[Rfam]
RNA sequence: CAUAUCUCAACGGGGUGCCCGAAAGGGGCUGAGAGGCGGUCGCACCGCCAACCCGCGGAACCUGAUCCGGUUUGUACCGGCGUAGGGAUUUGAGAAGCCUUCCGCG
Numbered sequence: 001c002a003u004a005u006c007u008c009a010a011c012g013g014g015g016u017g018c019c020c021g022a023a024a025g026g027g028g029c030u031g032a033g034a035g036g037c038g039g040u041c042g043c044a045c046c047g048c049c050a051a052c053c054c055g056c057g058g059a060a061c062c063u064g065a066u067c068c069g070g071u072u073u074g075u076a077c078c079g080g081c082g083u084a085g086g087g088a089u090u091u092g093a094g095a096a097g098c099c100u101u102c103c104g105c106g
Base pairs, nucleotide, nucleotide: 006094007093008092009091010090011055012054013053014052017029018028019027020026036048037047038046039045040044061086062085063084064083067080068079069078070077
Notes
A member of the RNA family "TPP riboswitch aptamer (THI element)" from Pelagibius litoralis, 106 nucleotides long. It scores 77 bits against the family's covariance model.